[Rfam]
RNA sequence: GGGGGUGCACUGGCUUCGACGGGGGUCACAAAAUCACUUGGUGCAUGCCGAGGGGGCCGCUUUCCUCGUAAAUCCAGCAGCACACUUAUAGUUGCCAACGAAGACAACUUCGCUCUAGCCGCUUAAGGCUUAAGCCUCGAAACUGCUUGUGUCCGUGCUCGCAGCGUAGAGUCAUCAUCACGGAACCGCUGAGACGUGGCCGUCUGCCCACCCUUGGUUAAAUCUAGCAGACUGGUUUCCGGGUGCGCUUUGCCUGUCGUGCUGCCCGGCGACGAGACCUAACGGCCAGGAUAAGCAUGUAGGGCCGGGGACGGAGUACUUUCGGACGGCGGUUCGAUUCCGCCCACCUCCACCA
Numbered sequence: 001g002g003g004g005g006u007g008c009a010c011u012g013g014c015u016u017c018g019a020c021g022g023g024g025g026u027c028a029c030a031a032a033a034u035c036a037c038u039u040g041g042u043g044c045a046u047g048c049c050g051a052g053g054g055g056g057c058c059g060c061u062u063u064c065c066u067c068g069u070a071a072a073u074c075c076a077g078c079a080g081c082a083c084a085c086u087u088a089u090a091g092u093u094g095c096c097a098a099c100g101a102a103g104a105c106a107a108c109u110u111c112g113c114u115c116u117a118g119c120c121g122c123u124u125a126a127g128g129c130u131u132a133a134g135c136c137u138c139g140a141a142a143c144u145g146c147u148u149g150u151g152u153c154c155g156u157g158c159u160c161g162c163a164g165c166g167u168a169g170a171g172u173c174a175u176c177a178u179c180a181c182g183g184a185a186c187c188g189c190u191g192a193g194a195c196g197u198g199g200c201c202g203u204c205u206g207c208c209c210a211c212c213c214u215u216g217g218u219u220a221a222a223u224c225u226a227g228c229a230g231a232c233u234g235g236u237u238u239c240c241g242g243g244u245g246c247g248c249u250u251u252g253c254c255u256g257u258c259g260u261g262c263u264g265c266c267c268g269g270c271g272a273c274g275a276g277a278c279c280u281a282a283c284g285g286c287c288a289g290g291a292u293a294a295g296c297a298u299g300u301a302g303g304g305c306c307g308g309g310g311a312c313g314g315a316g317u318a319c320u321u322u323c324g325g326a327c328g329g330c331g332g333u334u335c336g337a338u339u340c341c342g343c344c345c346a347c348c349u350c351c352a353c354c355a
Base pairs, nucleotide, nucleotide: 001351002350003349004348005347006346007345020324021323022322023321024320025319026318034311035310037308039307040306041305042304044299045298046297047296048295049068050067051066052065053064056081057080059078060077061076112135113134114133117130118129119128120127136171137170138169140167144166145165147164148163149162152184153183154182155181156180157179188218189217190216191215192214193213200234202232203231204230205229235273236272237271239269240268241267242266243265244264246261247260248259253290254289255288256286257285258284328344329343330342331341332340

Shown here is a 355-nucleotide RNA from Xylella fastidiosa, a member of the family "transfer-messenger RNA". The organism belongs to Xylella fastidiosa, within Bacteria. The literature on the family includes a 2010 paper in RNA Biol by Mao et al., "Variations on the tmRNA gene". By type it is a non-coding RNA gene.